[Rfam]
RNA sequence: ACCUUCCUUCAUAUAAGCACUGUGUCAAAACUGCGGAAACUAGGAUCACAUCUUGGUUUUUGUAAUAAUGUUGGCAGAGUACACACACUGCACUAGAUUGUGAAGACUUGGGGGGGGGCCUCUCUCUUAAUGUCCUUCAUCUCAAGAUUUGAUGCAGUAUGU
Number, nucleotide and partner (000 for none) at each position: 001a000002c000003c000004u000005u000006c000007c000008u000009u000010c000011a000012u000013a000014u000015a000016a000017g000018c000019a000020c079021u078022g000023u076024g075025u074026c073027a072028a000029a000030a069031c000032u067033g066034c000035g000036g060037a059038a000039a057040c056041u055042a054043g053044g052045a051046u050047c000048a000049c000050a046051u045052c044053u043054u042055g041056g040057u039058u000059u037060u036061u000062g000063u000064a000065a000066u033067a032068a000069u030070g000071u000072u027073g026074g025075c024076a023077g000078a021079g020080u000081a000082c000083a000084c000085a000086c000087a000088c000089u156090g155091c154092a153093c000094u151095a150096g149097a148098u000099u000100g000101u000102g000103a000104a000105g000106a000107c000108u000109u000110g000111g000112g000113g000114g135115g134116g133117g000118g000119c000120c000121u000122c000123u000124c000125u000126c000127u000128u000129a000130a000131u000132g000133u116134c115135c114136u000137u000138c000139a000140u000141c000142u000143c000144a000145a000146g000147a000148u097149u096150u095151g094152a000153u092154g091155c090156a089157g000158u000159a000160u000161g000162u000
The family of this 162-nucleotide RNA from Felis catus is "Small nucleolar RNA SNORA81". Rfam classes the family as an H/ACA-box small nucleolar RNA. The sequence is in the family's curated seed alignment. The source organism's lineage runs through Eukaryota, Chordata, Amniota, Carnivora and Felis. The base pairs follow the family's consensus structure, which was predicted with WAR. For this family Rfam cites "A novel experimental approach for systematic identification of box H/ACA snoRNAs from eukaryotes" (Gu et al., Nucleic Acids Res, 2005).